Notes: Rfam assigns this 104-nucleotide sequence from Ascidiaceihabitans donghaensis to the family "TPP riboswitch aptamer (THI element)". Vitamin B(1) in its active form thiamin pyrophosphate (TPP) is an essential coenzyme that is synthesised by coupling of pyrimidine and thiazole moieties in bacteria. The previously detected thiamin-regulatory element, thi box was extended, resulting in a new, highly conserved RNA secondary structure, the THI element, which is widely distributed in eubacteria and also occurs in some archaea. Lineage of the source: Bacteria > Pseudomonadati > Pseudomonadota > Rhodobacterales > Ascidiaceihabitans. The match comes from Rfam's covariance-model search (72 bits).
[Rfam]
RNA sequence: GGCGCUACCUCGGGGGGCUUUUUCAAAAGCUGAGAUUGCAAUUCUGCUGACCCGUUGAACCUGAACCGGCUAACACCGGCGGAGGGAAGGUAACGGCAACAGCC
Numbered sequence: 001g002g003c004g005c006u007a008c009c010u011c012g013g014g015g016g017g018c019u020u021u022u023u024c025a026a027a028a029g030c031u032g033a034g035a036u037u038g039c040a041a042u043u044c045u046g047c048u049g050a051c052c053c054g055u056u057g058a059a060c061c062u063g064a065a066c067c068g069g070c071u072a073a074c075a076c077c078g079g080c081g082g083a084g085g086g087a088a089g090g091u092a093a094c095g096g097c098a099a100c101a102g103c104c
Stems, first nucleotide, its partner, number of pairs: 006092005011054004016048001017030005038047003060085003066079004